This 102-nucleotide RNA from Parastagonospora nodorum belongs to the Rfam family "Small nucleolar RNA Z13/snr52". Its family is annotated with nucleolus and RNA processing in the Gene Ontology. The organism belongs to Parastagonospora nodorum, within Eukaryota. It is one of the family's seed sequences. By type it is a C/D-box small nucleolar RNA.
RNA sequence: CACUGUCCGAUGAUGUAAUACUUUUCGGAUGUAAACCCAUUAAACCACCGAGAGCGCAAAACCGUGUGGAUAUUUUCCGUUGCCUUCCUUCUGAGACCCAAC
Numbered sequence: 001c002a003c004u005g006u007c008c009g010a011u012g013a014u015g016u017a018a019u020a021c022u023u024u025u026c027g028g029a030u031g032u033a034a035a036c037c038c039a040u041u042a043a044a045c046c047a048c049c050g051a052g053a054g055c056g057c058a059a060a061a062c063c064g065u066g067u068g069g070a071u072a073u074u075u076u077c078c079g080u081u082g083c084c085u086u087c088c089u090u091c092u093g094a095g096a097c098c099c100a101a102c
Base pairs, nucleotide, nucleotide: 004100005099026079027078028077029076